[Rfam]
This 262-nucleotide sequence belongs to the Rfam family "BsrG". bsrE, bsrG and bsrH pair through intermolecular interactions with antisense sRNAs. They form type I toxin/antitoxin system that includes an mRNA encoding for a short, toxic peptide (bsrE, bsrG and bsrH) and an antitoxin that is comprised of an antisense RNA. bsrG encodes a 39-amino-acid toxin, and the 180 nucleotide antisense sRNA called SR4 acts as the antitoxin (they overlap by 123 nucleotides). The match comes from Rfam's covariance-model search (214 bits). On this family, see Jahn et al., Mol Microbiol 2012: "BsrG/SR4 from Bacillus subtilis--the first temperature-dependent type I toxin-antitoxin system". It is annotated as a small RNA.

RNA sequence: UACAUUAAGUUUGCUCACUCAAGGGAGUCUUGCUCAUCCCCUAAUGAAAGGGGGUGAUGCUAAUGUCAACAUUUCAAGCAUUAAUACUCAUGCUUGCAUUUGGGUCUUUUAUAAUUGCCCUGUUGACGUAUAUAAACAAAAAAUAGACCUCCCUUGAGCCCUCAGAAAGUUCAGGGAAUGGUCUAUCUCAACUAAGAACCAAUGAGCAAGCCCUUUGAUGGGCAGCUUUUUGUACAGAUCCGGGGUGUUGGUAGCACCCUGG
Numbered sequence: 001u002a003c004a005u006u007a008a009g010u011u012u013g014c015u016c017a018c019u020c021a022a023g024g025g026a027g028u029c030u031u032g033c034u035c036a037u038c039c040c041c042u043a044a045u046g047a048a049a050g051g052g053g054g055u056g057a058u059g060c061u062a063a064u065g066u067c068a069a070c071a072u073u074u075c076a077a078g079c080a081u082u083a084a085u086a087c088u089c090a091u092g093c094u095u096g097c098a099u100u101u102g103g104g105u106c107u108u109u110u111a112u113a114a115u116u117g118c119c120c121u122g123u124u125g126a127c128g129u130a131u132a133u134a135a136a137c138a139a140a141a142a143a144u145a146g147a148c149c150u151c152c153c154u155u156g157a158g159c160c161c162u163c164a165g166a167a168a169g170u171u172c173a174g175g176g177a178a179u180g181g182u183c184u185a186u187c188u189c190a191a192c193u194a195a196g197a198a199c200c201a202a203u204g205a206g207c208a209a210g211c212c213c214u215u216u217g218a219u220g221g222g223c224a225g226c227u228u229u230u231u232g233u234a235c236a237g238a239u240c241c242g243g244g245g246u247g248u249u250g251g252u253a254g255c256a257c258c259c260u261g262g
Stems, first nucleotide, its partner, number of pairs: 001234004007228003010224001011209006018158008027148004034057003038053005065127007078093003102119002169192003210223004240262010